[Rfam]
Shown here is a 149-nucleotide RNA from Clostridium sp. CAG:1024, a member of the family "FMN riboswitch aptamer (RFN element)". The RFN element is a highly conserved domain that is found frequently in the 5'-untranslated regions of prokaryotic mRNAs that encode for flavin mononucleotide (FMN) biosynthesis and transport proteins.
RNA sequence: AUAAAGCUUCGGGGCGGGGUGCGAUUCCCCACCGGCGGUGACAGUCCGCGAACCGGCUGUGCAAAAGAGUGCGCAGGCGGCCGACCCGGUGAAAUUCCGGGACCGACGGUAAGGCCGAAUGGGUCGAGUCCGGAUGAGAGAAGCGGCAA
Numbered sequence: 001a002u003a004a005a006g007c008u009u010c011g012g013g014g015c016g017g018g019g020u021g022c023g024a025u026u027c028c029c030c031a032c033c034g035g036c037g038g039u040g041a042c043a044g045u046c047c048g049c050g051a052a053c054c055g056g057c058u059g060u061g062c063a064a065a066a067g068a069g070u071g072c073g074c075a076g077g078c079g080g081c082c083g084a085c086c087c088g089g090u091g092a093a094a095u096u097c098c099g100g101g102a103c104c105g106a107c108g109g110u111a112a113g114g115c116c117g118a119a120u121g122g123g124u125c126g127a128g129u130c131c132g133g134a135u136g137a138g139a140g141a142a143g144c145g146g147c148a149a
Stems, first nucleotide, its partner, number of pairs: 006144005017029003033105002035049004044103002053080002085101005107132003

Taxonomically the source falls in Clostridium (Bacteria, Bacillati, Bacillota, Eubacteriales).